[Rfam]
Record summary:
The family of this 149-nucleotide RNA from Pigmentiphaga litoralis is "ZMP/ZTP riboswitch aptamer (pfl RNA motif)". The base pairs follow the family's consensus structure, which is taken from published work.
RNA sequence: CUUUCCCUGCGUGACUGGCGAAUUCUAGGGGCCACUUCAAAGCGGCCACCCUAGGUGGGAUCACCACAAGGAAGCGCAGGGUUCUGGCGAGGCAGUGCACGGCAUCGUUGCGUGCGCUCCGCGCCACGCCGUUCGCCUGGGCAGCCGUA
Numbered sequence: 001c002u003u004u005c006c007c008u009g010c011g012u013g014a015c016u017g018g019c020g021a022a023u024u025c026u027a028g029g030g031g032c033c034a035c036u037u038c039a040a041a042g043c044g045g046c047c048a049c050c051c052u053a054g055g056u057g058g059g060a061u062c063a064c065c066a067c068a069a070g071g072a073a074g075c076g077c078a079g080g081g082u083u084c085u086g087g088c089g090a091g092g093c094a095g096u097g098c099a100c101g102g103c104a105u106c107g108u109u110g111c112g113u114g115c116g117c118u119c120c121g122c123g124c125c126a127c128g129c130c131g132u133u134c135g136c137c138u139g140g141g142c143a144g145c146c147g148u149a
Stems, first nucleotide, its partner, number of pairs: 005081008015071002017137005055067004128142003
Notes:
It scores 46 bits against the family's covariance model.